Plastid-clpP 5UTR RNA: a 74-nucleotide RNA sequence from Musa balbisiana. Rfam's curators write: Plastid clpP is a non-coding RNA (ncRNA) recognised in plastids. It was found in the prime untranslated region (5UTR) of a protease complex subunit (clpP) in plastids, suggesting a posible cis-regulatory function.
RNA sequence: AAUUCGUUCGUAAGAACAAAGAGAAAGAAGAAGCAGAUCUAUUCUAUACCCGCUUAGUCCAAGACGCAAUGGGA
Numbered sequence: 001a002a003u004u005c006g007u008u009c010g011u012a013a014g015a016a017c018a019a020a021g022a023g024a025a026a027g028a029a030g031a032a033g034c035a036g037a038u039c040u041a042u043u044c045u046a047u048a049c050c051c052g053c054u055u056a057g058u059c060c061a062a063g064a065c066g067c068a069a070u071g072g073g074a
Stems, first nucleotide, its partner, number of pairs: 003021002006017004049073003057065003
A search with the family's covariance model found it, with a score of 58 bits. Pairs were carried over by alignment from the consensus structure, which was predicted with LocARNA. Taxonomically the source falls in Musa (Eukaryota, Viridiplantae, Tracheophyta, Zingiberales).